A member of the RNA family "Guanidine-II riboswitch aptamer (mini-ykkC)" from Pantoea ananatis, 50 nucleotides long. The literature on the family includes a 2017 paper in Cell Chem Biol by Huang et al., "The Structure of the Guanidine-II Riboswitch". The match comes from Rfam's covariance-model search (40 bits).
RNA sequence: CCCCGGGGACGGCCCCAGGGGACAUGUCGACUUUCUGCGGGACGACCCGC
Number, nucleotide and partner (000 for none) at each position: 001c020002c019003c018004c000005g016006g015007g014008g013009a000010c000011g000012g000013c008014c007015c006016c005017a000018g003019g002020g001021g000022a000023c000024a000025u000026g000027u000028c000029g000030a000031c000032u000033u000034u000035c000036u000037g050038c049039g048040g047041g046042a000043c000044g000045a000046c041047c040048c039049g038050c037